Description: The family of this 254-nucleotide sequence from Ichthyophthirius multifiliis is "ACEA small nucleolar RNA U3". The family's RNA type in Rfam is C/D-box small nucleolar RNA.
[Rfam]
RNA sequence: AAGACUGUACUUUUACAGGAUCAUUUCUAUAGUAAUUACUUACUAUAUGCGUCUUCUAAGAAGACAACAACUCAAUCUAGGAUGAUUAAAAGAACACUCUUAUCCUUAAUGGGACAUUGAAAUCUCUAGUAUUUUAUUCUUUUUAGAAUAGAAUACUUUUGCAUUUCACGAUGAUCGUCCAUCACUGUUUUAAACCGAUAGUUUUAUACUUGAAGUUACCAGUGUAUGGAGGGUAUGAAUGCUUCUGACUAGAU
Numbered sequence: 001a002a003g004a005c006u007g008u009a010c011u012u013u014u015a016c017a018g019g020a021u022c023a024u025u026u027c028u029a030u031a032g033u034a035a036u037u038a039c040u041u042a043c044u045a046u047a048u049g050c051g052u053c054u055u056c057u058a059a060g061a062a063g064a065c066a067a068c069a070a071c072u073c074a075a076u077c078u079a080g081g082a083u084g085a086u087u088a089a090a091a092g093a094a095c096a097c098u099c100u101u102a103u104c105c106u107u108a109a110u111g112g113g114a115c116a117u118u119g120a121a122a123u124c125u126c127u128a129g130u131a132u133u134u135u136a137u138u139c140u141u142u143u144u145a146g147a148a149u150a151g152a153a154u155a156c157u158u159u160u161g162c163a164u165u166u167c168a169c170g171a172u173g174a175u176c177g178u179c180c181a182u183c184a185c186u187g188u189u190u191u192a193a194a195c196c197g198a199u200a201g202u203u204u205u206a207u208a209c210u211u212g213a214a215g216u217u218a219c220c221a222g223u224g225u226a227u228g229g230a231g232g233g234u235a236u237g238a239a240u241g242c243u244u245c246u247g248a249c250u251a252g253a254u
Base pairs, nucleotide, nucleotide: 001041002040003039006035008034009033010032011031017028018027019026020025048069049068051065052064053063054062055061076253077252078251079250080249095241096240098238099237101235102234103233104232105231106230109178110177111176112175119167120166121165124161183224184223185222187220
About this RNA:
Rfam links the family to the GO terms nucleolus and RNA processing. Taxonomically the source falls in Ichthyophthirius (Eukaryota, Alveolata, Intramacronucleata, Ophryoglenina). Small nucleolar RNAs (snoRNAs) are involved in the processing and modification of rRNA in the nucleolus. Its Rfam clan is "U3 clan".